[Rfam]
RNA sequence: CUGAUUGACGCGCCGGGCCAACGCACCGUCGAGCCCAUUUCCCGGCAGUCCGGGAAGCGCGCUUAGGGUCAG
Dot-bracket structure: (((((...(((((.(((....((......))..)))..(((((((....))))))))))))......)))))

This 72-nucleotide sequence belongs to the Rfam family "L4-Archaeoglobi ribosomal protein leades". Rfam classes the family as a cis-regulatory leader.